The family of this 121-nucleotide RNA is "DUF3268 RNA". Rfam's curators put it in the seed alignment.

Nucleotides: 121
Stems, first nucleotide, its partner, number of pairs: 007121010025080004029050003033046003055074007085106003089103004
Number, partner (000 for none) and nucleotide at each position: 001000g002000u003000c004000a005000a006000a007121g008120g009119c010118u011117u012116g013115c014114g015113u016112u017000c018000a019000g020000g021000c022000u023000u024000c025080c026079g027078g028077u029050a030049c031048g032000g033046c034045a035044g036000u037000a038000g039000g040000a041000u042000c043000c044035c045034u046033g047000g048031c049030g050029u051000c052000a053000g054000a055074c056073a057072u058071a059070u060069c061068c062000g063000g064000g065000a066000a067000g068061g069060g070059g071058u072057a073056u074055g075000g076000a077028a078027u079026c080025g081000g082000a083000a084000c085106g086105g087104a088000u089103g090102c091101g092100u093000a094000a095000a096000g097000a098000a099000a100092g101091c102090g103089c104087u105086c106085c107000a108000c109000a110000a111000u112016a113015a114014c115013g116012c117011a118010a119009g120008c121007c